[Rfam]
RNA sequence: AGUCUGUUUCGGGGCGAGGUGAAAUUCCUCACUGGCGGUAAUGGGUGGAGCAAUCCCCACAAGUCCGCGACCCGGCUGGGUUCAGCCGGCAGAUUGGGUGCGAUUCCCAAACCAACGGUAAAGUCCGGUAUGAAGAAACGGCGU
Dot-bracket structure: ...(((((((......(((.......))).[[((((((........................[[))))...((..............))....(((((.......)))))]])).(((....]]))).......)))))))...
RNA: FMN riboswitch aptamer (RFN element)
Organism: Clostridium sp. CAG:169